A member of the RNA family "Bacterial small signal recognition particle RNA" from Aliiglaciecola sp. M165, 97 nucleotides long. For this family Rfam cites "SRPDB: Signal Recognition Particle Database" (Rosenblad et al., Nucleic Acids Res, 2003). The signal recognition particle (SRP) is a universally conserved ribonucleoprotein involved in the co-translational targeting of proteins to membranes. NCBI's taxonomy places the organism under Bacteria, Pseudomonadota, Gammaproteobacteria, Alteromonadales, Aliiglaciecola.
[Rfam]
RNA sequence: UUUUGGUCCUUCCGCAAUGAUACUCUGUGAACCCGGUCAGGCCUGGAAGGGAGCAGCCGCAGCAGACGACUCAUGUGCCGGAAUGUGGCUGGAGGAC
Numbered sequence: 001u002u003u004u005g006g007u008c009c010u011u012c013c014g015c016a017a018u019g020a021u022a023c024u025c026u027g028u029g030a031a032c033c034c035g036g037u038c039a040g041g042c043c044u045g046g047a048a049g050g051g052a053g054c055a056g057c058c059g060c061a062g063c064a065g066a067c068g069a070c071u072c073a074u075g076u077g078c079c080g081g082a083a084u085g086u087g088g089c090u091g092g093a094g095g096a097c
Base pairs, nucleotide, nucleotide: 004091005090006089007088008087010083011082012081013080014079015075017074018073019072020071024066025065026064027063028062034059035058036057037056042051043050044049